RNA sequence: ACCUAGCUAAAGUAAGCUAACUCCGCCCCGUGAUGUAAUACCUAAAGGUGGUUCCACGGGGUAGGGGUUGAGUCGGGGGUGGUUUUAGUGGGUAAAAAUCCCACACGCUGGUGUGUCCAGACCAGUGUCUUUUCAAGAUUUCCACCUCCUCAAAA
Numbered sequence: 001a002c003c004u005a006g007c008u009a010a011a012g013u014a015a016g017c018u019a020a021c022u023c024c025g026c027c028c029c030g031u032g033a034u035g036u037a038a039u040a041c042c043u044a045a046a047g048g049u050g051g052u053u054c055c056a057c058g059g060g061g062u063a064g065g066g067g068u069u070g071a072g073u074c075g076g077g078g079g080u081g082g083u084u085u086u087a088g089u090g091g092g093u094a095a096a097a098a099u100c101c102c103a104c105a106c107g108c109u110g111g112u113g114u115g116u117c118c119a120g121a122c123c124a125g126u127g128u129c130u131u132u133u134c135a136a137g138a139u140u141u142c143c144a145c146c147u148c149c150u151c152a153a154a155a
Stems, first nucleotide, its partner, number of pairs: 026061006068153004075149008088104005106127006

Rfam assigns this 155-nucleotide sequence from Hermetia illucens to the family "R2 RNA element". Its family is annotated with regulation of reverse transcription in the Gene Ontology. On this family, see Luan et al., Cell 1993: "Reverse transcription of R2Bm RNA is primed by a nick at the chromosomal target site: a mechanism for non-LTR retrotransposition". The family's RNA type in Rfam is cis-regulatory element.